[Rfam]
RNA sequence: GUUCUCACAAUGUCCGGUUAAAGUUAACUGACACUAAACUGAACAUUGUAAGAACGG
Numbered sequence: 001g002u003u004c005u006c007a008c009a010a011u012g013u014c015c016g017g018u019u020a021a022a023g024u025u026a027a028c029u030g031a032c033a034c035u036a037a038a039c040u041g042a043a044c045a046u047u048g049u050a051a052g053a054a055c056g057g
Stems, first nucleotide, its partner, number of pairs: 001055005007049005013043001015041005021035001023032003

Shown here is a 57-nucleotide RNA sequence from Acyrthosiphon pisum, a member of the family "mir-3015 microRNA precursor family". The organism belongs to Acyrthosiphon, within Eukaryota.